Small nucleolar RNA SNORA43: a 138-nucleotide sequence from Chlorocebus sabaeus. A search with the family's covariance model found it, with a score of 118 bits. About the family: ACA43 is a member of the H/ACA class of snoRNA that guide the sites of modification of uridines to pseudouridines. The family has 21 seed sequences and 492 matches in Rfam 15.1. The organism belongs to Chlorocebus, within Eukaryota.
RNA sequence: GCCGCUCGGAACCUGCCAGCACCGCAGAUGCUGUUGGUCUGCUGUGCCCAUGAUAUUGGGGCAAAGAGAAAGAGGCUAUUUCUACACUUCGUGUUCAGAAAUCAGUGAGCUCUAAGAAUGGUUUAUGGCCUGACAUUU
Numbered sequence: 001g002c003c004g005c006u007c008g009g010a011a012c013c014u015g016c017c018a019g020c021a022c023c024g025c026a027g028a029u030g031c032u033g034u035u036g037g038u039c040u041g042c043u044g045u046g047c048c049c050a051u052g053a054u055a056u057u058g059g060g061g062c063a064a065a066g067a068g069a070a071a072g073a074g075g076c077u078a079u080u081u082c083u084a085c086a087c088u089u090c091g092u093g094u095u096c097a098g099a100a101a102u103c104a105g106u107g108a109g110c111u112c113u114a115a116g117a118a119u120g121g122u123u124u125a126u127g128g129c130c131u132g133a134c135a136u137u138u
Base pairs, nucleotide, nucleotide: 004062005061006060007059009057010056024051027048074130075129076128082121083120084119087116088115093110094109095108096107097106